Background: This 43-nucleotide RNA sequence from actinobacterium LLX17 belongs to the Rfam family "L31-Actinobacteria ribosomal protein leader". The family is grouped with related families in Rfam's "Ribosomal Protein L31 Leader clan". It is one of the family's seed sequences.
[Rfam]
RNA sequence: UUGGUCCUGGUUCACGACGCGCGCCGCGCGACGACCCAGCGCC
Numbered sequence: 001u002u003g004g005u006c007c008u009g010g011u012u013c014a015c016g017a018c019g020c021g022c023g024c025c026g027c028g029c030g031a032c033g034a035c036c037c038a039g040c041g042c043c
Stems, first nucleotide, its partner, number of pairs: 003043003007039004015033002018030005
Annotation
The source organism's lineage runs through Bacteria, Bacillati, Actinomycetota and Actinomycetes.